[Rfam]
RNA sequence: AUAUCGCCAACUGGAGAGCAGCCCGCAAUCACAAGUUUGCAGGGCUCACCGAAGGGGCAAGCAUGUCCACCGCGAAGGUGCACAUGCGCAACUCUCAGGUAAAAGGACAGCGGGAGAGGC
Numbered sequence: 001a002u003a004u005c006g007c008c009a010a011c012u013g014g015a016g017a018g019c020a021g022c023c024c025g026c027a028a029u030c031a032c033a034a035g036u037u038u039g040c041a042g043g044g045c046u047c048a049c050c051g052a053a054g055g056g057g058c059a060a061g062c063a064u065g066u067c068c069a070c071c072g073c074g075a076a077g078g079u080g081c082a083c084a085u086g087c088g089c090a091a092c093u094c095u096c097a098g099g100u101a102a103a104a105g106g107a108c109a110g111c112g113g114g115a116g117a118g119g120c
Stems, first nucleotide, its partner, number of pairs: 007114002011110003020046004048100003051096002055094003061087006

Shown here is a 120-nucleotide RNA sequence from Comamonas sp. 26, a member of the family "Glycine riboswitch aptamer". Rfam's curators write: This family represents the bacterial glycine riboswitch. It scores 58 bits against the family's covariance model. The source organism's lineage runs through Bacteria, Betaproteobacteria, Burkholderiales, Comamonadaceae and Comamonas.